[Rfam]
RNA sequence: AUACCCCAUGGUGCUCAGGUCCGCCGCAUCUCCUGGGUCGUGGGGUCGGUCGGCAGGUAUAUGAUUGUUUGCGGUUCCUCGUGCCGUUAUUAUGUGCCCGCCGACCCCCUU
Numbered sequence: 001a002u003a004c005c006c007c008a009u010g011g012u013g014c015u016c017a018g019g020u021c022c023g024c025c026g027c028a029u030c031u032c033c034u035g036g037g038u039c040g041u042g043g044g045g046u047c048g049g050u051c052g053g054c055a056g057g058u059a060u061a062u063g064a065u066u067g068u069u070u071g072c073g074g075u076u077c078c079u080c081g082u083g084c085c086g087u088u089a090u091u092a093u094g095u096g097c098c099c100g101c102c103g104a105c106c107c108c109c110u111u
Base pairs, nucleotide, nucleotide: 003046004045005044006043007042008041009040010039014037015036016035017034018033019032048106049105050104051103052102053101054100056098057097058096
Overview:
Rfam assigns this 111-nucleotide RNA from Rhizobium oryziradicis to the family "EcpR1". The organism belongs to Rhizobium, within Bacteria. The literature on the family includes a 2012 paper in RNA Biol by Wilms et al., "Deep sequencing uncovers numerous small RNAs on all four replicons of the plant pathogen Agrobacterium tumefaciens". Rfam describes the family as follows. Perviously named SmelC291, SmrC10, or Sra33. According to its overproduction phenotype it was renamed Elongated Cell Phenotype RNA1. The match comes from Rfam's covariance-model search (101 bits). It is annotated as a small RNA.